RNA sequence: UUAUGCCUGGCUCCCUGUAUGCCAUGAGGAUCAAAUCAAAGCUAUUUUGGUUUUUGCUUGUUGCGUGCGAGGAGCCAAGCAUGC
Numbered sequence: 001u002u003a004u005g006c007c008u009g010g011c012u013c014c015c016u017g018u019a020u021g022c023c024a025u026g027a028g029g030a031u032c033a034a035a036u037c038a039a040a041g042c043u044a045u046u047u048u049g050g051u052u053u054u055u056g057c058u059u060g061u062u063g064c065g066u067g068c069g070a071g072g073a074g075c076c077a078a079g080c081a082u083g084c
Stems, first nucleotide, its partner, number of pairs: 002083005008077007016069007024061001027058002
Notes
This 84-nucleotide RNA from Cannabis sativa belongs to the Rfam family "mir-160 microRNA precursor family". A reference for the family is Rhoades et al. (2002), "Prediction of plant microRNA targets", Cell. Rfam links the family to the GO terms miRNA-mediated post-transcriptional gene silencing and RISC complex. The base pairs follow the family's consensus structure, which was predicted with PFOLD. The organism belongs to Cannabis, within Eukaryota. It scores 59 bits against the family's covariance model.